[Rfam]
RNA sequence: GCCUUUUAUUCGCUGAAUCCUUUGAGCGGGGGAACCAUUUUUGAUAGGAUAAAUUCCUGUCUUGGGGUGAAUCUUACUAGUUAAGAAGGGAUACUCUCAGUCCCUAAUCCGACAGCUAACCUCGUAAGCGUUUUGUUAAAUCUGG
Numbered sequence: 001g002c003c004u005u006u007u008a009u010u011c012g013c014u015g016a017a018u019c020c021u022u023u024g025a026g027c028g029g030g031g032g033a034a035c036c037a038u039u040u041u042u043g044a045u046a047g048g049a050u051a052a053a054u055u056c057c058u059g060u061c062u063u064g065g066g067g068u069g070a071a072u073c074u075u076a077c078u079a080g081u082u083a084a085g086a087a088g089g090g091a092u093a094c095u096c097u098c099a100g101u102c103c104c105u106a107a108u109c110c111g112a113c114a115g116c117u118a119a120c121c122u123c124g125u126a127a128g129c130g131u132u133u134u135g136u137u138a139a140a141u142c143u144g145g
Stems, first nucleotide, its partner, number of pairs: 011130004018025002026125006036064002065110003073085004088104004
A member of the RNA family "c-di-AMP riboswitch aptamer (ydaO/yuaA leader)" from Virgibacillus salarius, 145 nucleotides long.
A search with the family's covariance model found it, with a score of 86 bits.
Lineage of the source: Bacteria > Bacillati > Bacilli > Bacillaceae > Virgibacillus.